Shown here is an 85-nucleotide RNA sequence from Filobacillus milosensis, a member of the family "Glycine riboswitch aptamer".
Lineage of the source: Bacteria > Bacillota > Bacilli > Caryophanales > Filobacillus.

[Rfam]
RNA sequence: CUCUGGAGAGUGUUCAUGACUAUGAACCACCAAAGAUGCAAGUAAUGCUAAACGUAUUACGAAACUUUCAGGUGACAGGACAGAG
Number, nucleotide and partner (000 for none) at each position: 001c085002u084003c083004u082005g081006g000007a000008g000009a000010g000011u000012g027013u026014u025015c024016a000017u000018g000019a000020c000021u000022a000023u000024g015025a014026a013027c012028c000029a073030c072031c071032a000033a068034a000035g000036a067037u000038g065039c000040a000041a000042g060043u059044a058045a057046u056047g055048c000049u000050a000051a000052a000053c000054g000055u047056a046057u045058u044059a043060c042061g000062a000063a000064a000065c038066u000067u036068u033069c000070a000071g031072g030073u029074g000075a000076c000077a000078g000079g000080a000081c005082a004083g003084a002085g001